[Rfam]
A member of the RNA family "6S / SsrS RNA" from Gottschalkia purinilytica, 179 nucleotides long.
The source organism's lineage runs through Bacteria, Bacillota, Tissierellales, Gottschalkiaceae and Gottschalkia.
About the family: E. coli 6S RNA was the first non coding RNA to be sequenced, but its function was unknown until recently. It consists of 184 nucleotides that fold into an extended hairpin structure with a large single-stranded internal bulge. The 6S RNA specifically associates with RNA polymerase holoenzyme containing the sigma70 specificity factor. This interaction represses expression from a sigma70-dependent promoter during stationary phase. 6S RNA homologs have recently been identified in most bacterial genomes.
The family's RNA type in Rfam is non-coding RNA gene.
A search with the family's covariance model found it, with a score of 94 bits.
Pairs were carried over by alignment from the consensus structure, which is taken from published work.

RNA sequence: ACAUUCCUGAGAUGUACGAGAGCUUUUGAUAAUUCAACCGACAUAUGUAUUACGGGAGUUCAAGUUCUAUAGUGUAUGAUAGGCCUACUUGUAUAGGAAAUCAGAAACUAAAGAUAGAACACCCACCUGCGAGAGAUGCGGGUAUGAAUUAGCAGGGCAACCGGCAUCGCGGGAAAAUC
Number, nucleotide and partner (000 for none) at each position: 001a000002c000003a000004u175005u174006c173007c172008u171009g170010a000011g168012a167013u166014g165015u164016a000017c163018g162019a000020g000021a000022g000023c000024u000025u000026u000027u000028g000029a000030u000031a000032a000033u000034u147035c146036a145037a143038c142039c141040g000041a000042c000043a000044u000045a000046u000047g000048u000049a000050u000051u000052a000053c000054g124055g123056g122057a000058g120059u119060u118061c117062a000063a115064g000065u114066u000067c113068u112069a000070u110071a109072g108073u107074g000075u000076a000077u000078g000079a101080u100081a000082g000083g000084c097085c096086u095087a094088c000089u000090u000091g000092u000093a000094u087095a086096g085097g084098a000099a000100a080101u079102c000103a000104g000105a000106a000107a073108c072109u071110a070111a000112a068113g067114a065115u063116a000117g061118a060119a059120c058121a000122c056123c055124c054125a000126c000127c000128u000129g000130c000131g000132a000133g000134a000135g000136a000137u000138g000139c000140g000141g039142g038143u037144a000145u036146g035147a034148a000149u000150u000151a000152g000153c000154a000155g000156g000157g000158c000159a000160a000161c000162c018163g017164g015165c014166a013167u012168c011169g000170c009171g008172g007173g006174a005175a004176a000177a000178u000179c000